Record summary
The family of this 72-nucleotide RNA from Alligator sinensis is "Mammalian CPEB3 ribozyme". Pairs were carried over by alignment from the consensus structure, which is taken from published work. The organism belongs to Alligator, within Eukaryota.
RNA sequence: GGUCACAAAUUUGAGGCCAUGGCAGAAGCAUGUUUGGCCCUGUCAGAUUCCAACGAAUCUGCAAAUUCUGCU
Numbered sequence: 001g002g003u004c005a006c007a008a009a010u011u012u013g014a015g016g017c018c019a020u021g022g023c024a025g026a027a028g029c030a031u032g033u034u035u036g037g038c039c040c041u042g043u044c045a046g047a048u049u050c051c052a053a054c055g056a057a058u059c060u061g062c063a064a065a066u067u068c069u070g071c072u
Stems, first nucleotide, its partner, number of pairs: 013040001015039004021072007028035001044061007